[Rfam]
RNA sequence: UUCUCCGGUGAGUUUUGCACGUUUCCACUCAGCUCUAUAAUUCUGUGCUUCGGAAAUUGGUGCAAAACUGACUGUGGCA
Numbered sequence: 001u002u003c004u005c006c007g008g009u010g011a012g013u014u015u016u017g018c019a020c021g022u023u024u025c026c027a028c029u030c031a032g033c034u035c036u037a038u039a040a041u042u043c044u045g046u047g048c049u050u051c052g053g054a055a056a057u058u059g060g061u062g063c064a065a066a067a068c069u070g071a072c073u074g075u076g077g078c079a
Stems, first nucleotide, its partner, number of pairs: 003077002006074004011069009020059002022056005031049003
Background
This 79-nucleotide sequence from Neodrepanis coruscans belongs to the Rfam family "mir-19 microRNA precursor family". Its Rfam clan is "mir-19 clan". A reference for the family is Houbaviy et al. (2003), "Embryonic stem cell-specific MicroRNAs", Dev Cell. NCBI's taxonomy places the organism under Eukaryota, Tetrapoda, Amniota, Coelurosauria, Neodrepanis. The base pairs follow the family's consensus structure, which was predicted with RNAalifold. Rfam 15.1 lists 2,337 matches to the family in 651 species.